[Rfam]
RNA sequence: CUCGGCACAUAACUAAAACACACACACUUCGUCACGUGUAUCUGGGUGCCCGAAAGGGUUGAUAUAUGGGGGGUGUGGAGGUUUAAA
Numbered sequence: 001c002u003c004g005g006c007a008c009a010u011a012a013c014u015a016a017a018a019c020a021c022a023c024a025c026a027c028u029u030c031g032u033c034a035c036g037u038g039u040a041u042c043u044g045g046g047u048g049c050c051c052g053a054a055a056g057g058g059u060u061g062a063u064a065u066a067u068g069g070g071g072g073g074u075g076u077g078g079a080g081g082u083u084u085a086a087a
Stems, first nucleotide, its partner, number of pairs: 023077008035068008048059004

t44 RNA: an 87-nucleotide RNA from Marinobacterium sp. LSUCC0821. The base pairs follow the family's consensus structure, which was predicted with LocARNA. A search with the family's covariance model found it, with a score of 69 bits. For this family Rfam cites "Transcriptome analysis of Escherichia coli using high-density oligonucleotide probe arrays" (Tjaden et al., Nucleic Acids Res, 2002).